[Rfam]
RNA sequence: GUGCAUCCAGUAGGAAUUUAACCUACGAAUUUGCCUAUAAUGAGUUGGGUGAUUUAACCAUUCAUCCUUGGAUGC
Numbered sequence: 001g002u003g004c005a006u007c008c009a010g011u012a013g014g015a016a017u018u019u020a021a022c023c024u025a026c027g028a029a030u031u032u033g034c035c036u037a038u039a040a041u042g043a044g045u046u047g048g049g050u051g052a053u054u055u056a057a058c059c060a061u062u063c064a065u066c067c068u069u070g071g072a073u074g075c
Base pairs, nucleotide, nucleotide: 003075004074005073006072007071008070010026011025012024013023014022040069042067044066046064047063048062049061050060051059
Dot-bracket structure: ..((((((.(((((.......))))).............(.(.(.((((((.......)))))).)).)))))))

Notes
Plastid-ycf2 5UTR RNA: a 75-nucleotide RNA from Capsicum annuum. It scores 84 bits against the family's covariance model. Rfam's curators write: Plastid ycf2 is a non-coding RNA (ncRNA) recognised in plastids.